[Rfam]
The family of this 161-nucleotide sequence from Alkaliphilus peptidifermentans is "glmS glucosamine-6-phosphate activated ribozyme aptamer". The literature on the family includes a 2004 paper in Nature by Winkler et al., "Control of gene expression by a natural metabolite-responsive ribozyme".

RNA sequence: UAAGUAAUAAAAGCGCCAGAGCUUAGAAAUGAAGUGUUUCUGAGCUGACGAGGACAGGGUUUAUCGAAUUUUUUCGGCGGAUGCCCUGCGGUGAGUCACCACCGUAAGAAGUCUACAAAACCAUGGAGAAAUCGAUGGGACAAAAAGGCUUUAGUUGAUAA
Numbered sequence: 001u002a003a004g005u006a007a008u009a010a011a012a013g014c015g016c017c018a019g020a021g022c023u024u025a026g027a028a029a030u031g032a033a034g035u036g037u038u039u040c041u042g043a044g045c046u047g048a049c050g051a052g053g054a055c056a057g058g059g060u061u062u063a064u065c066g067a068a069u070u071u072u073u074u075c076g077g078c079g080g081a082u083g084c085c086c087u088g089c090g091g092u093g094a095g096u097c098a099c100c101a102c103c104g105u106a107a108g109a110a111g112u113c114u115a116c117a118a119a120a121c122c123a124u125g126g127a128g129a130a131a132u133c134g135a136u137g138g139g140a141c142a143a144a145a146a147g148g149c150u151u152u153a154g155u156u157g158a159u160a161a
Stems, first nucleotide, its partner, number of pairs: 020046008029037001055088005064077004089104005108152007121138004126133002
Its family is annotated with catalytic activity and regulation of gene expression in the Gene Ontology. Pairs were carried over by alignment from the consensus structure, which is taken from published work.